This 114-nucleotide RNA from Lottia gigantea belongs to the Rfam family "Potassium channel RNA editing signal". Rfam describes the family as follows. This family represents a group of sequences related to the human potassium channel Kv1.1 hairpin element which directs the efficient modification of an adenosine to inosine by an adenosine deaminase acting on RNA (ADAR). The ADAR modification causes an isoleucine/valine recoding event which lies in the ion-conducting pore of the potassium channel. It is thought that this editing event targets the process of fast inactivation and allows a more rapid recovery from inactivation at negative potentials. Taxonomically the source falls in Lottia (Eukaryota, Metazoa, Lophotrochozoa, Patellogastropoda). It is annotated as a cis-regulatory element.
RNA sequence: GUAGGGUAUGGUGAUAUAUACCCUAAAUCUGGACUGGGCUAUAUUGUGGGUGGCUUGUGUGCUAUCAGUGGGGUACUGGUCAUUGCUCUGUCAGUUCCUGUUAUCGUCAAUAAC
Numbered sequence: 001g002u003a004g005g006g007u008a009u010g011g012u013g014a015u016a017u018a019u020a021c022c023c024u025a026a027a028u029c030u031g032g033a034c035u036g037g038g039c040u041a042u043a044u045u046g047u048g049g050g051u052g053g054c055u056u057g058u059g060u061g062c063u064a065u066c067a068g069u070g071g072g073g074u075a076c077u078g079g080u081c082a083u084u085g086c087u088c089u090g091u092c093a094g095u096u097c098c099u100g101u102u103a104u105c106g107u108c109a110a111u112a113a114c
Stems, first nucleotide, its partner, number of pairs: 001114002004111001008107004013102004020095002037077002049063003